[Rfam]
RNA sequence: CACGGGACAAUCCGAGGUGCCCGUGAGCUUUGCUGUGCUGCGGUGGUGCCUUCUGGUAGUUCCGGAGAUAA
Numbered sequence: 001c002a003c004g005g006g007a008c009a010a011u012c013c014g015a016g017g018u019g020c021c022c023g024u025g026a027g028c029u030u031u032g033c034u035g036u037g038c039u040g041c042g043g044u045g046g047u048g049c050c051u052u053c054u055g056g057u058a059g060u061u062c063c064g065g066a067g068a069u070a071a
Base pairs, nucleotide, nucleotide: 003064004063005062007060008059015051016050017049
A member of the RNA family "Trypanosomatid snoRNA TB9Cs1H2" from Trypanosoma theileri, 71 nucleotides long.
On this family, see Liang et al., RNA 2005: "A genome-wide analysis of C/D and H/ACA-like small nucleolar RNAs in Trypanosoma brucei reveals a trypanosome-specific pattern of rRNA modification".
The match comes from Rfam's covariance-model search (67 bits).
Lineage of the source: Eukaryota > Discoba > Metakinetoplastina > Trypanosomatida > Trypanosoma.
Pairs were carried over by alignment from the consensus structure, which was predicted with WAR.
The family has 5 seed sequences and 53 matches in Rfam 15.1.